[Rfam]
Shown here is a 67-nucleotide RNA sequence from Bacillus sp. HNG, a member of the family "Bacillaceae-1 RNA". It is annotated as a small RNA. The source organism's lineage runs through Bacteria, Bacillota, Caryophanales, Bacillaceae and Bacillus. The family's consensus secondary structure is taken from published work.

RNA sequence: AAAAGAAGAUCAAAGACUAAGAACGCCACUUCCUGUGGCAACGUCUUUAUGACCCACAUCACGUGGA
Numbered sequence: 001a002a003a004a005g006a007a008g009a010u011c012a013a014a015g016a017c018u019a020a021g022a023a024c025g026c027c028a029c030u031u032c033c034u035g036u037g038g039c040a041a042c043g044u045c046u047u048u049a050u051g052a053c054c055c056a057c058a059u060c061a062c063g064u065g066g067a
Stems, first nucleotide, its partner, number of pairs: 012048006025039005054066004